[Rfam]
RNA sequence: GCCGCUAGAGGGAAUGGAGUCUCCCUUUAACCGCCUCAAGGCUGAUGACUCCUGCAAGCGU
Numbered sequence: 001g002c003c004g005c006u007a008g009a010g011g012g013a014a015u016g017g018a019g020u021c022u023c024c025c026u027u028u029a030a031c032c033g034c035c036u037c038a039a040g041g042c043u044g045a046u047g048a049c050u051c052c053u054g055c056a057a058g059c060g061u
Stems, first nucleotide, its partner, number of pairs: 010025004016052006033042003